c-di-GMP-I riboswitch aptamer: an 80-nucleotide RNA from Methylomonas sp. LWB. The source organism's lineage runs through Bacteria, Pseudomonadati, Pseudomonadota, Methylococcales and Methylomonas. From the family's description: GEMM was predicted in a large-scale screen for bacterial structured RNA regulatory elements. The match comes from Rfam's covariance-model search (49 bits).
[Rfam]
RNA sequence: CGGCAAAAACGCCACAUCCGCCGCGAGACGGAGCCGGAAAACCACGGAUCUUUGGACCAAAAGACCGCCGGGUUGCCCGU
Numbered sequence: 001c002g003g004c005a006a007a008a009a010c011g012c013c014a015c016a017u018c019c020g021c022c023g024c025g026a027g028a029c030g031g032a033g034c035c036g037g038a039a040a041a042c043c044a045c046g047g048a049u050c051u052u053u054g055g056a057c058c059a060a061a062a063g064a065c066c067g068c069c070g071g072g073u074u075g076c077c078c079g080u
Stems, first nucleotide, its partner, number of pairs: 012037002017032004022027001040074004045070003049064005